[Rfam]
Record summary
Rfam assigns this 91-nucleotide sequence from Bacillus oleivorans to the family "c-di-GMP-I riboswitch aptamer". A search with the family's covariance model found it, with a score of 59 bits. Its family is annotated with cyclic-di-GMP binding in the Gene Ontology. The base pairs follow the family's consensus structure, which is taken from published work.
RNA sequence: AAGUGAAAAAGGCAAAUCACUGGAAACUGUGAUACGCAAAGCUAGGGCCUGAACUGCAAAAACGAUAUGCAGAUGGCAGCCGGUUACCACA
Numbered sequence: 001a002a003g004u005g006a007a008a009a010a011g012g013c014a015a016a017u018c019a020c021u022g023g024a025a026a027c028u029g030u031g032a033u034a035c036g037c038a039a040a041g042c043u044a045g046g047g048c049c050u051g052a053a054c055u056g057c058a059a060a061a062a063c064g065a066u067a068u069g070c071a072g073a074u075g076g077c078a079g080c081c082g083g084u085u086a087c088c089a090c091a
Stems, first nucleotide, its partner, number of pairs: 012037002017032004022027001040085004045081002047077003054072004